RNA sequence: GCGUGGGUCGGCCCGCCGUACUGGAAGCGGUGGGCUGGGGGACACCGCCGCCUCAAUCCCCGCGGGUGGCGGACCGGUCCGGGAGGCGGUCAGCGCCUCCCGGGCUGAG
Numbered sequence: 001g002c003g004u005g006g007g008u009c010g011g012c013c014c015g016c017c018g019u020a021c022u023g024g025a026a027g028c029g030g031u032g033g034g035c036u037g038g039g040g041g042a043c044a045c046c047g048c049c050g051c052c053u054c055a056a057u058c059c060c061c062g063c064g065g066g067u068g069g070c071g072g073a074c075c076g077g078u079c080c081g082g083g084a085g086g087c088g089g090u091c092a093g094c095g096c097c098u099c100c101c102g103g104g105c106u107g108a109g
Stems, first nucleotide, its partner, number of pairs: 002107001006075003009037010038043001045072009076106013
Rfam assigns this 109-nucleotide RNA to the family "Streptomyces RNA 4115". Rfam's curators write: Identified by deep sequencing of transcriptome at the end of exponential growth phase. Sequencing size consistent with notrthern blot size. The base pairs follow the family's consensus structure. The literature on the family includes a 2011 paper in RNA Biol by Vockenhuber et al., "Deep sequencing-based identification of small non-coding RNAs in Streptomyces coelicolor". It is annotated as a small RNA.